Shown here is a 140-nucleotide RNA from Streptococcus mitis, a member of the family "Streptococcus sRNA SpF22". Rfam classes the family as a small RNA. The family's consensus secondary structure was predicted with mfold. The source organism's lineage runs through Bacteria, Bacillota, Lactobacillales, Streptococcaceae and Streptococcus mitis. A reference for the family is Mann et al. (2012), "Control of virulence by small RNAs in Streptococcus pneumoniae", PLoS Pathog.

[Rfam]
RNA sequence: UGAGAUCGGCGCGUGCUUGCCAAUUCUUAUCAGAACAAGGUUAUGAGGUUAUCGAUGUCCAAGGUGGCAUGAUGUCCUUUGAAGAACUUUAAAAAUUUGCAUUUCUCCUACUUGGUGUGGACUGGGUAGGAGAAUGUUAU
Numbered sequence: 001u002g003a004g005a006u007c008g009g010c011g012c013g014u015g016c017u018u019g020c021c022a023a024u025u026c027u028u029a030u031c032a033g034a035a036c037a038a039g040g041u042u043a044u045g046a047g048g049u050u051a052u053c054g055a056u057g058u059c060c061a062a063g064g065u066g067g068c069a070u071g072a073u074g075u076c077c078u079u080u081g082a083a084g085a086a087c088u089u090u091a092a093a094a095a096u097u098u099g100c101a102u103u104u105c106u107c108c109u110a111c112u113u114g115g116u117g118u119g120g121a122c123u124g125g126g127u128a129g130g131a132g133a134a135u136g137u138u139a140u
Base pairs, nucleotide, nucleotide: 008021009020010019011018032138033137035135038078039077040076042074043073046070048068049067050066051065052064053063104133105132106131107130108129109128110127111126112125115122116121